This 71-nucleotide RNA from Metabacillus harenarius belongs to the Rfam family "tRNA". The match comes from Rfam's covariance-model search (63 bits).
RNA sequence: GGCAUCAUAGCCAAGUGGUAAGGCCGAGGUCUGCAAAACCUCUAUCCCCGGUUCAAAUCCGGGUGGUGCCU
Numbered sequence: 001g002g003c004a005u006c007a008u009a010g011c012c013a014a015g016u017g018g019u020a021a022g023g024c025c026g027a028g029g030u031c032u033g034c035a036a037a038a039c040c041u042c043u044a045u046c047c048c049c050g051g052u053u054c055a056a057a058u059c060c061g062g063g064u065g066g067u068g069c070c071u
Stems, first nucleotide, its partner, number of pairs: 001070007010024003026042005047063005